[Rfam]
RNA sequence: CUCUCCGAAAUAGCUUUAGGGCUAGCGUCGCAAUUUAAGUGUAUUGGAGGUAGAGCACUGUUUGGAUGAGGGGCCCAUCUCGGGUUACCAAUUUCAGAUAAACUCCGAAUGCUAAUACACAUGUGCGGCAGUCAGACUGCGAGUGCUAAGAUCCGUAGUCGAAAGGGAAACAGCCCAGACCACCAGCUAAGGUCCCAAAAUAUAUGUUAAGUGGAAAAGGAUGUGGGGUUGCACAGACAACUAGGAUGUUAGCUCAGAAGCAGCUAUCAUUCAAAGAGUGCGUAAUAGCUCACUAGUCGAGUGACCCUGCGCCGAAAAUGUACCGGGGCUAAACAUAUUACCGAAGCUGUGGAUUUAAUAUUAAUUAAAUGGUAGGAGAGCGUUGUAAUCAGCGAUGAAGGUAUACCGUGAGGGGUGCUGGAGCGAUUACAAGUGAGAAU
Numbered sequence: 001c002u003c004u005c006c007g008a009a010a011u012a013g014c015u016u017u018a019g020g021g022c023u024a025g026c027g028u029c030g031c032a033a034u035u036u037a038a039g040u041g042u043a044u045u046g047g048a049g050g051u052a053g054a055g056c057a058c059u060g061u062u063u064g065g066a067u068g069a070g071g072g073g074c075c076c077a078u079c080u081c082g083g084g085u086u087a088c089c090a091a092u093u094u095c096a097g098a099u100a101a102a103c104u105c106c107g108a109a110u111g112c113u114a115a116u117a118c119a120c121a122u123g124u125g126c127g128g129c130a131g132u133c134a135g136a137c138u139g140c141g142a143g144u145g146c147u148a149a150g151a152u153c154c155g156u157a158g159u160c161g162a163a164a165g166g167g168a169a170a171c172a173g174c175c176c177a178g179a180c181c182a183c184c185a186g187c188u189a190a191g192g193u194c195c196c197a198a199a200a201u202a203u204a205u206g207u208u209a210a211g212u213g214g215a216a217a218a219g220g221a222u223g224u225g226g227g228g229u230u231g232c233a234c235a236g237a238c239a240a241c242u243a244g245g246a247u248g249u250u251a252g253c254u255c256a257g258a259a260g261c262a263g264c265u266a267u268c269a270u271u272c273a274a275a276g277a278g279u280g281c282g283u284a285a286u287a288g289c290u291c292a293c294u295a296g297u298c299g300a301g302u303g304a305c306c307c308u309g310c311g312c313c314g315a316a317a318a319u320g321u322a323c324c325g326g327g328g329c330u331a332a333a334c335a336u337a338u339u340a341c342c343g344a345a346g347c348u349g350u351g352g353a354u355u356u357a358a359u360a361u362u363a364a365u366u367a368a369a370u371g372g373u374a375g376g377a378g379a380g381c382g383u384u385g386u387a388a389u390c391a392g393c394g395a396u397g398a399a400g401g402u403a404u405a406c407c408g409u410g411a412g413g414g415g416u417g418c419u420g421g422a423g424c425g426a427u428u429a430c431a432a433g434u435g436a437g438a439a440u
Base pairs, nucleotide, nucleotide: 001380002379003378004377005376006375011024012023013022014021015020026131027129028128029127030126031125032124038122039120040119041118042117043116044115045114046113047112053106054104055103059100060099061098063096064095065094066093070089071088072086073085074084075083076082135160136159137158138157139156140155141154143152144151165176166175167174180352181351182350183349185348186347187346191342192341193340200339202338203337204336205335206334207333219313220312223310224309225308226307227306228305229304230303231302232301240297241296242295243294244293246270247269248268251265252264253263271275276291280289281288353370354369355368356367357366358365359364381435383432384431385430386429387428388427389426392424393423400419401418402417403416404415406413407412
RNA: Bacterial large subunit ribosomal RNA, nucleotides 847 to 1286